[Rfam]
The family of this 92-nucleotide RNA sequence from Paractinoplanes abujensis is "Selenocysteine transfer RNA". The family's consensus secondary structure is taken from published work. Lineage of the source: Bacteria > Actinomycetes > Micromonosporales > Micromonosporaceae > Paractinoplanes.
RNA sequence: GGAGGCGUUCAGGUGGCUGGUGCCCCUCCCGGUCUUCAAAACCGGUGCAACUCGGCAUCCGAGUUGGGCGGGUUCGAUUCCCGUCCGCCUCC
Numbered sequence: 001g002g003a004g005g006c007g008u009u010c011a012g013g014u015g016g017c018u019g020g021u022g023c024c025c026c027u028c029c030c031g032g033u034c035u036u037c038a039a040a041a042c043c044g045g046u047g048c049a050a051c052u053c054g055g056c057a058u059c060c061g062a063g064u065u066g067g068g069c070g071g072g073u074u075c076g077a078u079u080c081c082c083g084u085c086c087g088c089c090u091c092c
Stems, first nucleotide, its partner, number of pairs: 001092007012027002015024003029045005048066005069083004